Overview:
A member of the RNA family "Small nucleolar RNA SNORA53" from Scyliorhinus torazame, 254 nucleotides long. Rfam classes the family as an H/ACA-box small nucleolar RNA. The match comes from Rfam's covariance-model search (131 bits). The base pairs follow the family's consensus structure, which was predicted with RNAalifold. Rfam 15.1 lists 1,090 matches to the family in 800 species.
RNA sequence: CACACGCUCCUUAGAUCCACCUUUGGGAUGUGUCUGUUAGGCCUCGCUGGUAGAUCUCUCUCACCCCAGUGUUGGGGGGUUCUCCAGUGGGGCUGGCAGGUGACAUUCAUCAACUUUAGUGGUUGUACAGUCAAAGGUGCUUGAGUCAUUGGCGUGUCAAAGUAUUAUACCUGCACGGUAGCCCCUCUGUUCUGAUGGGAAUAACCUGUUUCAGGCUGUUUCUGCCAUCAGGACUUUGCUGCUGUGUGGACAUG
Numbered sequence: 001c002a003c004a005c006g007c008u009c010c011u012u013a014g015a016u017c018c019a020c021c022u023u024u025g026g027g028a029u030g031u032g033u034c035u036g037u038u039a040g041g042c043c044u045c046g047c048u049g050g051u052a053g054a055u056c057u058c059u060c061u062c063a064c065c066c067c068a069g070u071g072u073u074g075g076g077g078g079g080u081u082c083u084c085c086a087g088u089g090g091g092g093c094u095g096g097c098a099g100g101u102g103a104c105a106u107u108c109a110u111c112a113a114c115u116u117u118a119g120u121g122g123u124u125g126u127a128c129a130g131u132c133a134a135a136g137g138u139g140c141u142u143g144a145g146u147c148a149u150u151g152g153c154g155u156g157u158c159a160a161a162g163u164a165u166u167a168u169a170c171c172u173g174c175a176c177g178g179u180a181g182c183c184c185c186u187c188u189g190u191u192c193u194g195a196u197g198g199g200a201a202u203a204a205c206c207u208g209u210u211u212c213a214g215g216c217u218g219u220u221u222c223u224g225c226c227a228u229c230a231g232g233a234c235u236u237u238g239c240u241g242c243u244g245u246g247u248g249g250a251c252a253u254g
Base pairs, nucleotide, nucleotide: 002157003156004155005154006153007152008151010145011144012143013142014141018139019138020137021136022135023134024133025132026108027107028106029105030104032101033100034099035098036097037096038095039094041093044090045089046088047087050084052083053082054081111125112124113123114122115121171249172248173247174246175245178242180240181239182238191232192231193230194229195228196227197226198225202224203223205215206214207213